[Rfam]
RNA sequence: GUAGACCUUCAGGGCAGGGUGAGGUCAGCCAGGCUGACCAAUUCCCGAUCGGUGGUGAUGCAGGGAGUCUGACGAGCCCACGAGCCUACAGGUUAUCGAGACACCGAUUGUGGCGAUAACCGAGGCAGGAACGGGUGAGAAUCCCGUGCCGACGGUAUAGUCCGGAUGAAAGAAGGUUGCA
Numbered sequence: 001g002u003a004g005a006c007c008u009u010c011a012g013g014g015c016a017g018g019g020u021g022a023g024g025u026c027a028g029c030c031a032g033g034c035u036g037a038c039c040a041a042u043u044c045c046c047g048a049u050c051g052g053u054g055g056u057g058a059u060g061c062a063g064g065g066a067g068u069c070u071g072a073c074g075a076g077c078c079c080a081c082g083a084g085c086c087u088a089c090a091g092g093u094u095a096u097c098g099a100g101a102c103a104c105c106g107a108u109u110g111u112g113g114c115g116a117u118a119a120c121c122g123a124g125g126c127a128g129g130a131a132c133g134g135g136u137g138a139g140a141a142u143c144c145c146g147u148g149c150c151g152a153c154g155g156u157a158u159a160g161u162c163c164g165g166a167u168g169a170a171a172g173a174a175g176g177u178u179g180c181a
Stems, first nucleotide, its partner, number of pairs: 004178007017046003048161002050151002052081004076149002086125001131147005153164003
Dot-bracket structure: ...(((((((......(((........................))).[[((((((....................[[))))....(......................................).....(((((.......)))))]])).(((....]]))).......)))))))...